[Rfam]
RNA sequence: UGAAGAUGCAGGACUUAGCUCAUUGGUGAGCACUGCACACGGAGCUGUUCACAGUGGCUAAGUUCAGUGUCUGAC
Numbered sequence: 001u002g003a004a005g006a007u008g009c010a011g012g013a014c015u016u017a018g019c020u021c022a023u024u025g026g027u028g029a030g031c032a033c034u035g036c037a038c039a040c041g042g043a044g045c046u047g048u049u050c051a052c053a054g055u056g057g058c059u060a061a062g063u064u065c066a067g068u069g070u071c072u073g074a075c
Stems, first nucleotide, its partner, number of pairs: 011065010026052007